[Rfam]
Nucleotides: 088
Base pairs, nucleotide, nucleotide: 001088002087003086004085
Number, partner (000 for none) and nucleotide at each position: 001088g002087g003086g004085c005000u006000g007000u008000g009000a010000u011000g012000a013000g014000a015000a016000g017000a018000g019000a020000u021000c022000a023000a024000g025000u026000c027000a028000u029000g030000c031000a032000c033000c034000a035000c036000u037000c038000u039000g040000a041000u042000g043000u044000u045000u046000c047000u048000u049000g050000u051000g052000c053000u054000g055000a056000a057000a058000a059000c060000a061000c062000u063000c064000u065000u066000a067000u068000a069000c070000c071000c072000a073000u074000u075000a076000c077000u078000a079000c080000u081000c082000u083000g084000a085004g086003c087002c088001c
Rfam assigns this 88-nucleotide sequence from Dioscorea zingiberensis to the family "Small nucleolar RNA Z221/R21b". Its family is annotated with nucleolus and RNA processing in the Gene Ontology. It is annotated as a C/D-box small nucleolar RNA. A reference for the family is Chen et al. (2003), "The high diversity of snoRNAs in plants: identification and comparative study of 120 snoRNA genes from Oryza sativa", Nucleic Acids Res.